Overview
Shown here is a 369-nucleotide RNA from Olsenella sp. An188, a member of the family "transfer-messenger RNA". Pairs were carried over by alignment from the consensus structure, which is taken from published work. It scores 147 bits against the family's covariance model. Gene Ontology term of the family: RNA catabolic process.

RNA sequence: GGGGGUGACUGGUUUCGACAGGGUGGGUCUGAGAUGGGCAGCAGGCCGUGGUCUCCUCGCCACGCUAAACAGGGGUACCGUCAAAUUGAAUUGACGACAACAACUCUUACGAGCCUCAGCUGGCUCUCGCUGCUUAAUUAGAUAGCGGCGCGUCUAACCGGGGAUUGCUCCCGUUCCCGGGGCGACGUCAUUUCAGGGAGAUGCGCGCGCGGACGUAGUCGGUAUGCCGCGCGCUAAGACCGAACCGACUGGGAGGCCAAGCGCGGGUCACCGGGUGCGCGGCCUCCGAGACCCAACCGGCGACUGAGCCUGGAGACACCUGUCAGGGAUCUGCUUUGGACCGGAGUUCGAUUCUCCGCACCUCCACCA
Numbered sequence: 001g002g003g004g005g006u007g008a009c010u011g012g013u014u015u016c017g018a019c020a021g022g023g024u025g026g027g028u029c030u031g032a033g034a035u036g037g038g039c040a041g042c043a044g045g046c047c048g049u050g051g052u053c054u055c056c057u058c059g060c061c062a063c064g065c066u067a068a069a070c071a072g073g074g075g076u077a078c079c080g081u082c083a084a085a086u087u088g089a090a091u092u093g094a095c096g097a098c099a100a101c102a103a104c105u106c107u108u109a110c111g112a113g114c115c116u117c118a119g120c121u122g123g124c125u126c127u128c129g130c131u132g133c134u135u136a137a138u139u140a141g142a143u144a145g146c147g148g149c150g151c152g153u154c155u156a157a158c159c160g161g162g163g164a165u166u167g168c169u170c171c172c173g174u175u176c177c178c179g180g181g182g183c184g185a186c187g188u189c190a191u192u193u194c195a196g197g198g199a200g201a202u203g204c205g206c207g208c209g210c211g212g213a214c215g216u217a218g219u220c221g222g223u224a225u226g227c228c229g230c231g232c233g234c235u236a237a238g239a240c241c242g243a244a245c246c247g248a249c250u251g252g253g254a255g256g257c258c259a260a261g262c263g264c265g266g267g268u269c270a271c272c273g274g275g276u277g278c279g280c281g282g283c284c285u286c287c288g289a290g291a292c293c294c295a296a297c298c299g300g301c302g303a304c305u306g307a308g309c310c311u312g313g314a315g316a317c318a319c320c321u322g323u324c325a326g327g328g329a330u331c332u333g334c335u336u337u338g339g340a341c342c343g344g345a346g347u348u349c350g351a352u353u354c355u356c357c358g359c360a361c362c363u364c365c366a367c368c369a
Stems, first nucleotide, its partner, number of pairs: 001365007019338012033324006042312005047064005052077001054075004128150006151187004158180008168200005205234008217250006252287007261278001267304003277297001342358005